[Rfam]
The record is a 135-nucleotide RNA sequence from Cervus elaphus, which matches "Small nucleolar RNA SNORA31" in Rfam.
Rfam's curators write: ACA31 (SNORA31) belongs to the H/ACA class of snoRNAs which are thought to guide the sites of modification of uridines to pseudouridines. ACA31 is predicted to guide the pseudouridylation of U3713 in 28S rRNA and U218 in 18S rRNA. This family includes the mouse homologue snoMBI-161.
Gene Ontology terms of the family: RNA processing and nucleolus.
A reference for the family is Huttenhofer et al. (2001), "RNomics: an experimental approach that identifies 201 candidates for novel, small, non-messenger RNAs in mouse", EMBO J.
The source organism's lineage runs through Eukaryota, Opisthokonta, Gnathostomata, Cervinae and Cervus elaphus.
RNA sequence: AUGCCUCUAUUUGACAGGCCUGGAGUAGUUACUGUCUGCUAAGGUUUCCACUACAUACAGAUGCAAGAAAAAUAUAUCUUUGAGCUUUCUGUCUGUCUCGCUGUGGCAGCCCAGAUUGAAUGGGAGAAUACAUGG
Numbered sequence: 001a002u003g004c005c006u007c008u009a010u011u012u013g014a015c016a017g018g019c020c021u022g023g024a025g026u027a028g029u030u031a032c033u034g035u036c037u038g039c040u041a042a043g044g045u046u047u048c049c050a051c052u053a054c055a056u057a058c059a060g061a062u063g064c065a066a067g068a069a070a071a072a073u074a075u076a077u078c079u080u081u082g083a084g085c086u087u088u089c090u091g092u093c094u095g096u097c098u099c100g101c102u103g104u105g106g107c108a109g110c111c112c113a114g115a116u117u118g119a120a121u122g123g124g125a126g127a128a129u130a131c132a133u134g135g
Stems, first nucleotide, its partner, number of pairs: 002065003006061003012050002016047005024040005077127005085118001088115004093109005